This 145-nucleotide RNA sequence from Cnephaeus nilssonii belongs to the Rfam family "Small nucleolar RNA SNORA3/SNORA45 family". The organism belongs to Cnephaeus, within Eukaryota. The family is grouped with related families in Rfam's "SNORA3 clan". Its family is annotated with nucleolus and RNA processing in the Gene Ontology. Rfam describes the family as follows. The members of this family belong to the H/ACA class of snoRNAs which are thought to guide the sites of modification of uridines to pseudouridines. This family includes mouse snoMBI-28 and human homologues ACA3 (SNORA3) and ACA3-2 (SNORA45). Both ACA3 and ACA3-2 share the same host gene. MBI-28, ACA3 and ACA3-2 are all predicted to guide the pseudouridylation of residues in 28S rRNA. Rfam classes the family as an H/ACA-box small nucleolar RNA. Pairs were carried over by alignment from the consensus structure, which was predicted with RNAalifold.

RNA sequence: CCUGAGACUAGAGUUACAGCCUGACAGUUGUCGUCCUGGUGUUCUAGAGUUCUGAGAGAGAAGCUGCUGACCUUAAUUCACUGCUGAGGGCAGAGAGUGCCCCCCACUGCCCACCCCCCCCAUAAUGCCCAGGUCAGAUGCAUAC
Numbered sequence: 001c002c003u004g005a006g007a008c009u010a011g012a013g014u015u016a017c018a019g020c021c022u023g024a025c026a027g028u029u030g031u032c033g034u035c036c037u038g039g040u041g042u043u044c045u046a047g048a049g050u051u052c053u054g055a056g057a058g059a060g061a062a063g064c065u066g067c068u069g070a071c072c073u074u075a076a077u078u079c080a081c082u083g084c085u086g087a088g089g090g091c092a093g094a095g096a097g098u099g100c101c102c103c104c105c106a107c108u109g110c111c112c113a114c115c116c117c118c119c120c121c122a123u124a125a126u127g128c129c130c131a132g133g134u135c136a137g138a139u140g141c142a143u144a145c
Stems, first nucleotide, its partner, number of pairs: 002056002005053002007050003012045002016042003020038001023035003067137007079127002082124002086120001088118003